A member of the RNA family "Actinomyces-1 RNA", 109 nucleotides long.
[Rfam]
RNA sequence: GGUGCCGUCGGACGGAGCGGGUCAUGAGGGUUGGGGAACCCGAUGAGGGGCUCGUCUUCGAGGUCUGCGGGGUCUUAGGGAGCCCUGGCAGGCUGUUCCGGCGAAGGGG
Numbered sequence: 001g002g003u004g005c006c007g008u009c010g011g012a013c014g015g016a017g018c019g020g021g022u023c024a025u026g027a028g029g030g031u032u033g034g035g036g037a038a039c040c041c042g043a044u045g046a047g048g049g050g051c052u053c054g055u056c057u058u059c060g061a062g063g064u065c066u067g068c069g070g071g072g073u074c075u076u077a078g079g080g081a082g083c084c085c086u087g088g089c090a091g092g093c094u095g096u097u098c099c100g101g102c103g104a105a106g107g108g109g
Base pairs, nucleotide, nucleotide: 006103007102008101009100010099011098012097013060014059015058016057018054019053020052021051022050023049028041029040030039031038032037062094063093064092065091066090067089069086070085071084072083073082
Pairs were carried over by alignment from the consensus structure, which is taken from published work.